This 99-nucleotide RNA sequence from Armatimonadetes bacterium Uphvl-Ar1 belongs to the Rfam family "Bacterial small signal recognition particle RNA". Pairs were carried over by alignment from the consensus structure, which is taken from published work.
RNA sequence: CGCCGGGAGCUGUGCAGCAGGAAUUUGGUGAACCCCGUCAGGGCCGGAAGGCAGCAGCGGUAAAUCAAAGGACUGGGUGACACGGAAUUCCCGGCACUU
Number, nucleotide and partner (000 for none) at each position: 001c000002g000003c000004c093005g092006g091007g090008a089009g000010c085011u084012g083013u082014g081015c077016a000017g000018c075019a074020g073021g000022a000023a000024u069025u068026u067027g066028g065029u064030g000031a000032a000033c000034c000035c060036c059037g058038u057039c000040a000041g000042g000043g052044c051045c050046g000047g000048a000049a000050g045051g044052c043053a000054g000055c000056a000057g038058c037059g036060g035061u000062a000063a000064a029065u028066c027067a026068a025069a024070g000071g000072a000073c020074u019075g018076g000077g015078u000079g000080a000081c014082a013083c012084g011085g010086a000087a000088u000089u008090c007091c006092c005093g004094g000095c000096a000097c000098u000099u000

It scores 70 bits against the family's covariance model. A reference for the family is Rosenblad et al. (2003), "SRPDB: Signal Recognition Particle Database", Nucleic Acids Res. It is annotated as a non-coding RNA gene.